[Rfam]
RNA sequence: ACAUGUUUAAGGCCUUAGCAGAAGUGCUCAUGAUGUAGCCUGUCAGAUUCCAAUGAAUCUGUGAUUUCUGCU
Numbered sequence: 001a002c003a004u005g006u007u008u009a010a011g012g013c014c015u016u017a018g019c020a021g022a023a024g025u026g027c028u029c030a031u032g033a034u035g036u037a038g039c040c041u042g043u044c045a046g047a048u049u050c051c052a053a054u055g056a057a058u059c060u061g062u063g064a065u066u067u068c069u070g071c072u
Stems, first nucleotide, its partner, number of pairs: 011040003017072007024036003044061007
RNA: Mammalian CPEB3 ribozyme